[Rfam]
The family of this 248-nucleotide RNA from Cytobacillus solani is "T-box leader".
RNA sequence: AUACUACCGUUUGAUGAAGAAGAGUAAUUAAACCCCACAUGAAAAGAGAAGAAAUGUCAUGGGCUGAAAGCAUUUCUGCAUGAUGAUUUAAUGAAUGAACACUUCGUAGGUUUCUCUCUGAAAGAAGCAAUUGCUUUUAGUAGGAGUUGAACGUUAACAGGCGUUAACUGUAAAAGAGGAAGAUCGUCAAGUUUGGCGGCUUCAACUAGGGUGGCACCACGGGAAUCUCAGAAGCUCUCGUCCCUUGU
Numbered sequence: 001a002u003a004c005u006a007c008c009g010u011u012u013g014a015u016g017a018a019g020a021a022g023a024g025u026a027a028u029u030a031a032a033c034c035c036c037a038c039a040u041g042a043a044a045a046g047a048g049a050a051g052a053a054a055u056g057u058c059a060u061g062g063g064c065u066g067a068a069a070g071c072a073u074u075u076c077u078g079c080a081u082g083a084u085g086a087u088u089u090a091a092u093g094a095a096u097g098a099a100c101a102c103u104u105c106g107u108a109g110g111u112u113u114c115u116c117u118c119u120g121a122a123a124g125a126a127g128c129a130a131u132u133g134c135u136u137u138u139a140g141u142a143g144g145a146g147u148u149g150a151a152c153g154u155u156a157a158c159a160g161g162c163g164u165u166a167a168c169u170g171u172a173a174a175a176g177a178g179g180a181a182g183a184u185c186g187u188c189a190a191g192u193u194u195g196g197c198g199g200c201u202u203c204a205a206c207u208a209g210g211g212u213g214g215c216a217c218c219a220c221g222g223g224a225a226u227c228u229c230a231g232a233a234g235c236u237c238u239c240g241u242c243c244c245u246u247g248u
Stems, first nucleotide, its partner, number of pairs: 007110002016105004027092006039081003050077008113150002116146004152163003179203004184198001208245004219241005

Rfam describes the family as follows. Uncharged tRNA acts as the effector for transcription antitermination of genes in the T-box leader family. T-boxes are found upstream of many aminoacyl-tRNA synthetase genes and some amino acid biosynthetic genes usually in Gram-positive bacteria. The anticodon of a specific tRNA base pairs to a specifier sequence within the T-box motif, and the NCCA acceptor tail of the tRNA base pairs to a conserved bulge in the T-box antiterminator hairpin.